[Rfam]
Source information:
Rfam assigns this 80-nucleotide RNA sequence from Clostridium acidisoli to the family "ZMP/ZTP riboswitch aptamer (pfl RNA motif)". A search with the family's covariance model found it, with a score of 55 bits. Pairs were carried over by alignment from the consensus structure, which is taken from published work.
RNA sequence: AAGAAAUCAUGUAACUGGCGGAAAUGGAUGUAACCAUAGGGAGCGUGAUUAAAAAGUUAUCGACCGCCUGGGUAAAAGUG
Numbered sequence: 001a002a003g004a005a006a007u008c009a010u011g012u013a014a015c016u017g018g019c020g021g022a023a024a025u026g027g028a029u030g031u032a033a034c035c036a037u038a039g040g041g042a043g044c045g046u047g048a049u050u051a052a053a054a055a056g057u058u059a060u061c062g063a064c065c066g067c068c069u070g071g072g073u074a075a076a077a078g079u080g
Stems, first nucleotide, its partner, number of pairs: 005050008015040002017068005024037004057075005